[Rfam]
RNA sequence: GGUGCGACCGGAUGAUGGUUCACAACGACCGUGUCCUUCGAACGGGUCGGUGGGACUUUCGUCCGUUUGUAAC
Numbered sequence: 001g002g003u004g005c006g007a008c009c010g011g012a013u014g015a016u017g018g019u020u021c022a023c024a025a026c027g028a029c030c031g032u033g034u035c036c037u038u039c040g041a042a043c044g045g046g047u048c049g050g051u052g053g054g055a056c057u058u059u060c061g062u063c064c065g066u067u068u069g070u071a072a073c
Base pairs, nucleotide, nucleotide: 003071004070005069006068007067009065010064011063012062013061014060015059017057018056019055020054021053023052024051026049027048028047029046030045
This 73-nucleotide RNA from Drosophila ananassae belongs to the Rfam family "mir-278 microRNA precursor family". Pairs were carried over by alignment from the consensus structure, which was predicted with RNAalifold. On this family, see Ruby et al., Genome Res 2007: "Evolution, biogenesis, expression, and target predictions of a substantially expanded set of Drosophila microRNAs". Taxonomically the source falls in ananassae species complex (Eukaryota, Mandibulata, Pancrustacea, Insecta).